A member of the RNA family "SAM riboswitch aptamer (S box leader)" from Caldalkalibacillus thermarum, 111 nucleotides long.
Pairs were carried over by alignment from the consensus structure, which is taken from published work.

RNA sequence: CUCUUAUCAAGAGAGGCGGAGGGACUGGCCCGAUGAAGCCCGGCAACCGCCAGCUCAGGCUGGAAAGGUGCCAAUUCCUGCGAAGAUGGUUCCAUCUUCGAGAGAUAAGAG
Numbered sequence: 001c002u003c004u005u006a007u008c009a010a011g012a013g014a015g016g017c018g019g020a021g022g023g024a025c026u027g028g029c030c031c032g033a034u035g036a037a038g039c040c041c042g043g044c045a046a047c048c049g050c051c052a053g054c055u056c057a058g059g060c061u062g063g064a065a066a067g068g069u070g071c072c073a074a075u076u077c078c079u080g081c082g083a084a085g086a087u088g089g090u091u092c093c094a095u096c097u098u099c100g101a102g103a104g105a106u107a108a109g110a111g
Base pairs, nucleotide, nucleotide: 001111002110003109004108005107006106007105008104013041015040016039017038021031022030023029025080027078028077042072043071044070045069047068048067050063051062052061076103081100082099083098084097085096086095
Its family is annotated with regulation of gene expression in the Gene Ontology.